The record is a 77-nucleotide sequence, which matches "chrB-a RNA" in Rfam.

RNA sequence: CGGCAGGGGAAGCGAUCUCCCCUCCAGCCGACAUGCUCAAGAAUCGCGUCCCAACUCAGUCAACCGGAGGACGCAGG
Numbered sequence: 001c002g003g004c005a006g007g008g009g010a011a012g013c014g015a016u017c018u019c020c021c022c023u024c025c026a027g028c029c030g031a032c033a034u035g036c037u038c039a040a041g042a043a044u045c046g047c048g049u050c051c052c053a054a055c056u057c058a059g060u061c062a063a064c065c066g067g068a069g070g071a072c073g074c075a076g077g
Stems, first nucleotide, its partner, number of pairs: 005023006046074006
Annotation
By type it is a cis-regulatory element.